[Rfam]
Source information
A member of the RNA family "Fluoride riboswitch aptamer (crcB RNA motif)" from Anaerobacterium chartisolvens, 75 nucleotides long. For this family Rfam cites "Widespread genetic switches and toxicity resistance proteins for fluoride" (Baker et al., Science, 2012). The family's consensus secondary structure is taken from published work. The match comes from Rfam's covariance-model search (47 bits).
RNA sequence: GCAAUAGCAGGGAAUGAGGUUCUCCCUUGGGUUUUACCCUAAACCGCUUAUUAAGCUGAUGACUUCUGUGAUUUU
Numbered sequence: 001g002c003a004a005u006a007g008c009a010g011g012g013a014a015u016g017a018g019g020u021u022c023u024c025c026c027u028u029g030g031g032u033u034u035u036a037c038c039c040u041a042a043a044c045c046g047c048u049u050a051u052u053a054a055g056c057u058g059a060u061g062a063c064u065u066c067u068g069u070g071a072u073u074u075u
Stems, first nucleotide, its partner, number of pairs: 010026004016066006046056003